[Rfam]
RNA: Fluoride riboswitch aptamer (crcB RNA motif)
Nucleotides: 064
Base pairs, nucleotide, nucleotide: 010025011024012023013022016055017054018053019052020051021050033045034044035043036042
Number, partner (000 for none) and nucleotide at each position: 001000u002000a003000g004000g005000c006000u007000u008000u009000a010025g011024g012023u013022g014000a015000u016055g017054g018053a019052g020051u021050u022013c023012a024011c025010c026000u027000u028000u029000a030000a031000u032000c033045g034044c035043u036042u037000g038000c039000u040000g041000a042036a043035a044034g045033c046000u047000a048000a049000u050021g051020a052019c053018u054017c055016c056000u057000g058000c059000c060000g061000c062000a063000a064000u